Annotation
U11 spliceosomal RNA: a 129-nucleotide RNA from Apium graveolens. On this family, see Schneider et al., Proc Natl Acad Sci U S A 2004: "Identification of an evolutionarily divergent U11 small nuclear ribonucleoprotein particle in Drosophila". It is annotated as a spliceosomal small nuclear RNA. Rfam 15.1 lists 2,595 matches to the family in 1,202 species. It scores 74 bits against the family's covariance model. Pairs were carried over by alignment from the consensus structure, which is taken from published work.
RNA sequence: UAAAAGGGUCGGUUGGCUAAAUAUGCCACGCUUACCACUAGAAUGGUGAGUGCUGUAUGGCUAUCAAGACAUAUGGCCGACAUAAUUUGUGGAACCCUUUAGGGUUGGCUCGCUUUGGCCGAUCCUUCA
Numbered sequence: 001u002a003a004a005a006g007g008g009u010c011g012g013u014u015g016g017c018u019a020a021a022u023a024u025g026c027c028a029c030g031c032u033u034a035c036c037a038c039u040a041g042a043a044u045g046g047u048g049a050g051u052g053c054u055g056u057a058u059g060g061c062u063a064u065c066a067a068g069a070c071a072u073a074u075g076g077c078c079g080a081c082a083u084a085a086u087u088u089g090u091g092g093a094a095c096c097c098u099u100u101a102g103g104g105u106u107g108g109c110u111c112g113c114u115u116u117g118g119c120c121g122a123u124c125c126u127u128c129a
Stems, first nucleotide, its partner, number of pairs: 008081005014028004029052009053076007101126008110118003